[Rfam]
RNA sequence: UUCGAUAAGGGCAAACCCUGGGCGAUCAGGGGACGCAAAGUAAAAGGGUCUUAAACUUACAGGGAAGUAAGGAAAGAAAAGAUAGCCUUACUGCCGAAG
Numbered sequence: 001u002u003c004g005a006u007a008a009g010g011g012c013a014a015a016c017c018c019u020g021g022g023c024g025a026u027c028a029g030g031g032g033a034c035g036c037a038a039a040g041u042a043a044a045a046g047g048g049u050c051u052u053a054a055a056c057u058u059a060c061a062g063g064g065a066a067g068u069a070a071g072g073a074a075a076g077a078a079a080a081g082a083u084a085g086c087c088u089u090a091c092u093g094c095c096g097a098a099g
Stems, first nucleotide, its partner, number of pairs: 001099001003096002011036002016031006034085001039092004045088003048083005

Annotation
Rfam assigns this 99-nucleotide RNA sequence from Candidatus Brocadia sinica to the family "c-di-GMP-I-GGC riboswitch aptamer". The family is grouped with related families in Rfam's "c-di-GMP_I riboswitch clan". The source organism's lineage runs through Bacteria, Planctomycetota, Candidatus Brocadiales, Candidatus Brocadiaceae and Candidatus Brocadia sinica.